Notes:
The record is an 82-nucleotide RNA sequence from Odocoileus virginianus, which matches "Small nucleolar RNA SNORD86" in Rfam. The family's RNA type in Rfam is C/D-box small nucleolar RNA. The base pairs follow the family's consensus structure, which was predicted with RNAalifold. Rfam 15.1 lists 274 matches to the family in 139 species. Rfam links the family to the GO terms nucleolus and RNA processing.
[Rfam]
RNA sequence: AAUACAGUGAUGCCCUAGGACUCCCUGACCUACACAGGCCUCUGAUCAGGGGGUGAUAGCCAGUCCUGUUCUCUGAGUGAUU
Numbered sequence: 001a002a003u004a005c006a007g008u009g010a011u012g013c014c015c016u017a018g019g020a021c022u023c024c025c026u027g028a029c030c031u032a033c034a035c036a037g038g039c040c041u042c043u044g045a046u047c048a049g050g051g052g053g054u055g056a057u058a059g060c061c062a063g064u065c066c067u068g069u070u071c072u073c074u075g076a077g078u079g080a081u082u
Stems, first nucleotide, its partner, number of pairs: 001081001003079003009073002016068007023059001026056001028054004035049001037046001039044001
The literature on the family includes a 2001 paper in Biochem Biophys Res Commun by Filippini et al., "U86, a novel snoRNA with an unprecedented gene organization in yeast". NCBI's taxonomy places the organism under Eukaryota, Deuterostomia, Boreoeutheria, Laurasiatheria, Odocoileus virginianus.